[Rfam]
RNA sequence: CUUAUAACAACAAAAAAUUGGGAACUCAGUGAAGAAGAAAUUAAUCAAUUCUGCUGAGAGCAAUUUGAAUGUAGAGUAAAUGUUAUAUGGGAUACUGUAUAAUGUUUGCUUCUUACUGCGAGUGAUCAAAGUAAGAAAGAAGAAGAUUCUUCAAAUACAAGAAUUGCGUGCCUAAAACUAUGAAUAAAAGGUCUGUUUAACAAGUCGGUGUGACAAUUGAGCAGGUAUACGAUUACUAAUCGGAUACUGACACGGCCUUUAAGUUUUGAUUAGGGAUAAUCAAAUUACUAAAGGUAAUAUCCAAAACAAGCACUUGCCAAUGAUCUGACGAAAGUCAAGUAUAAGACAAAUCAAAACAGGACAAGUACCAUAAGGCGAAAGUUUGAUAAUUUGCUUAAAAAAGUAUCACAUUUAUAAAUUGACAAAUAACAAUCUAUAAAUUUUACUUCUGAAAGAUAUGGGAAAGUUGGGAGUAGCAAAAUCUCCUCUAGGCAUACGGCGUAGAGCAGGGCAUAUAGGUUAGAGCGACGGUUCGACACCUCAGGUAUGUUUUCCUAGUGACUGAAUGUAUUGCAGUAGUUUUAUAAGGUAGGGCGAAGGUCCCCCAAUUAACUUAUAAAA
Number, nucleotide and partner (000 for none) at each position: 001c000002u000003u000004a000005u000006a000007a000008c000009a000010a615011c000012a000013a000014a000015a610016a609017a000018u000019u608020g000021g606022g605023a000024a000025c058026u057027c056028a055029g054030u000031g000032a000033a000034g000035a000036a052037g051038a050039a049040a000041u000042u000043a000044a000045u000046c000047a000048a000049u039050u038051c037052u036053g000054c029055u028056g027057a026058g025059a000060g167061c166062a165063a164064u163065u162066u000067g000068a000069a000070u000071g000072u000073a000074g000075a110076g109077u108078a107079a106080a105081u000082g103083u102084u101085a100086u099087a098088u097089g096090g095091g000092a000093u000094a000095c090096u089097g088098u087099a086100u085101a084102a083103u082104g000105u080106u079107u078108g077109c076110u075111u136112c135113u134114u133115a132116c131117u130118g000119c000120g127121a126122g000123u000124g000125a000126u121127c120128a000129a000130a117131g116132u115133a114134a113135g112136a111137a000138a000139g152140a151141a150142g149143a148144a000145g000146a000147u000148u143149c142150u141151u140152c139153a000154a000155a000156u000157a000158c000159a000160a000161g000162a065163a064164u063165u062166g061167c060168g000169u000170g000171c000172c000173u000174a000175a583176a582177a581178c000179u579180a000181u000182g000183a000184a572185u000186a000187a569188a000189a000190g000191g563192u000193c000194u358195g357196u356197u355198u000199a000200a351201c000202a000203a000204g347205u346206c345207g314208g313209u312210g311211u310212g000213a000214c000215a000216a000217u000218u000219g000220a000221g000222c000223a000224g000225g000226u000227a000228u000229a000230c242231g241232a240233u239234u000235a000236c000237u000238a000239a233240u232241c231242g230243g000244a000245u000246a000247c000248u000249g000250a000251c000252a000253c000254g000255g295256c294257c293258u292259u291260u290261a000262a000263g000264u000265u284266u283267u282268g281269a280270u000271u000272a000273g000274g302275g301276a300277u000278a000279a000280u269281c268282a267283a266284a265285u000286u000287a000288c000289u000290a260291a259292a258293g257294g256295u255296a000297a000298u000299a000300u276301c275302c274303a000304a000305a000306a000307c000308a000309a000310g211311c210312a209313c208314u207315u377316g376317c375318c374319a000320a000321u000322g000323a000324u000325c000326u337327g336328a335329c334330g000331a000332a000333a000334g329335u328336c327337a326338a000339g000340u000341a000342u000343a000344a000345g206346a205347c204348a000349a000350a000351u200352c000353a000354a000355a197356a196357c195358a194359g000360g000361a000362c466363a000364a000365g000366u000367a000368c461369c460370a459371u458372a457373a000374g318375g317376c316377g315378a000379a000380a000381g000382u000383u000384u000385g000386a000387u000388a000389a000390u000391u000392u000393g000394c000395u000396u000397a000398a000399a000400a000401a000402a000403g000404u000405a000406u000407c000408a000409c000410a000411u000412u000413u000414a000415u000416a000417a000418a000419u000420u000421g000422a000423c000424a000425a000426a000427u000428a000429a000430c000431a000432a000433u000434c000435u000436a000437u000438a000439a000440a000441u000442u000443u000444u000445a000446c000447u000448u545449c544450u543451g542452a000453a000454a000455g000456a000457u372458a371459u370460g369461g368462g000463a000464a000465a000466g362467u000468u000469g000470g487471g486472a000473g484474u000475a000476g000477c000478a000479a000480a000481a000482u000483c000484u473485c000486c471487u470488c000489u557490a556491g555492g507493c000494a000495u000496a000497c000498g000499g000500c000501g000502u000503a000504g000505a000506g000507c492508a000509g553510g552511g551512c000513a000514u000515a000516u000517a546518g541519g540520u538521u536522a000523g534524a533525g532526c531527g000528a000529c000530g000531g526532u525533u524534c523535g000536a521537c000538a520539c000540c519541u518542c451543a450544g449545g448546u517547a000548u000549g000550u000551u511552u510553u509554c000555c491556u490557a489558g000559u000560g000561a000562c000563u191564g000565a000566a000567u000568g000569u187570a000571u000572u184573g000574c000575a000576g000577u000578a000579g179580u000581u177582u176583u175584a000585u000586a000587a000588g000589g000590u000591a000592g603593g602594g601595c600596g000597a000598a000599g000600g595601u594602c593603c592604c000605c022606c021607a000608a019609u016610u015611a000612a000613c000614u000615u010616a000617u000618a000619a000620a000621a000
This 621-nucleotide sequence belongs to the Rfam family "ROOL RNA". About the family: Firmicutes, Fusobacteria (1 example), Tenericutes (1 example).